Shown here is a 117-nucleotide sequence from Otus sunia, a member of the family "U4atac minor spliceosomal RNA". For this family Rfam cites "Computational screen for spliceosomal RNA genes aids in defining the phylogenetic distribution of major and minor spliceosomal components" (Davila Lopez et al., Nucleic Acids Res, 2008). From the family's description: U4atac is an essential component of the minor U12-type spliceosome complex which is required for removal of the rarer class of eukaryotic introns (AT-AC, U12-type).
[Rfam]
RNA sequence: ACCGUCCUUAUCUCGGGGUUGCGCGGCCGCCCGAUGAACGCGUGGUGAGGGCGGCCCUGCUGACGCCUCAAGCAACACAGCAGCGCCCGCCUCGCGCGUGGCGCAAUUUUUGGAACC
Numbered sequence: 001a002c003c004g005u006c007c008u009u010a011u012c013u014c015g016g017g018g019u020u021g022c023g024c025g026g027c028c029g030c031c032c033g034a035u036g037a038a039c040g041c042g043u044g045g046u047g048a049g050g051g052c053g054g055c056c057c058u059g060c061u062g063a064c065g066c067c068u069c070a071a072g073c074a075a076c077a078c079a080g081c082a083g084c085g086c087c088c089g090c091c092u093c094g095c096g097c098g099u100g101g102c103g104c105a106a107u108u109u110u111u112g113g114a115a116c117c
Stems, first nucleotide, its partner, number of pairs: 006018004021060003026055007038046002083104005088098003